[Rfam]
A member of the RNA family "Alphaproteobacterial ar14" from Paenochrobactrum gallinarii, 130 nucleotides long. Rfam's curators write: Smr14C2 was renamed NfeR1 (Nodule Formation Efficiency RNA) highly expressed in salt stress and during the symbiotic interaction on legume roots. The pairing is the family consensus, mapped onto this sequence.

RNA sequence: UAAUAUCACAGAAGACCCCUCCUCCUCCCCUUAAAGUCUUCUGUGGUUUAAGACCGGUCUCCCUCCUCCCAAUUAGCCGGUCUUUCUAUCAGACACCCGUUGCAGUCCUCCCCUGCGACGGGUGUUAUUU
Numbered sequence: 001u002a003a004u005a006u007c008a009c010a011g012a013a014g015a016c017c018c019c020u021c022c023u024c025c026u027c028c029c030c031u032u033a034a035a036g037u038c039u040u041c042u043g044u045g046g047u048u049u050a051a052g053a054c055c056g057g058u059c060u061c062c063c064u065c066c067u068c069c070c071a072a073u074u075a076g077c078c079g080g081u082c083u084u085u086c087u088a089u090c091a092g093a094c095a096c097c098c099g100u101u102g103c104a105g106u107c108c109u110c111c112c113c114u115g116c117g118a119c120g121g122g123u124g125u126u127a128u129u130u
Base pairs, nucleotide, nucleotide: 007045008044009043011041012040013039014038015037016036050084051083052082053081054080055079056078057077058076093125094124095123096122097121098120099119100118101117102116103115